Overview: Shown here is a 114-nucleotide RNA from Pseudonocardia cypriaca, a member of the family "TPP riboswitch aptamer (THI element)". It scores 66 bits against the family's covariance model. The organism belongs to Pseudonocardia, within Bacteria. Pairs were carried over by alignment from the consensus structure, which is taken from published work.

[Rfam]
RNA sequence: CUCCCGACCCACGGGAGCCUCGCGUUCCGAGGCUGAGAGGGCGGCAGGACCGGCCGCCGACCGUUCGUACCUGACCCGGUUAGUACCGGCGUAGGGAGGAACUGGUGAAACCCG
Numbered sequence: 001c002u003c004c005c006g007a008c009c010c011a012c013g014g015g016a017g018c019c020u021c022g023c024g025u026u027c028c029g030a031g032g033c034u035g036a037g038a039g040g041g042c043g044g045c046a047g048g049a050c051c052g053g054c055c056g057c058c059g060a061c062c063g064u065u066c067g068u069a070c071c072u073g074a075c076c077c078g079g080u081u082a083g084u085a086c087c088g089g090c091g092u093a094g095g096g097a098g099g100a101a102c103u104g105g106u107g108a109a110a111c112c113c114g
Base pairs, nucleotide, nucleotide: 006102009099010098011064012063013062014061017033018032019031020030021029040058041057042056043055044054070095071094072093073092076089077088078087079086
Dot-bracket structure: .....(..((((((..(((((.......)))))......(((((.........)))))..)))).....((((..((((......))))..))))..))..)............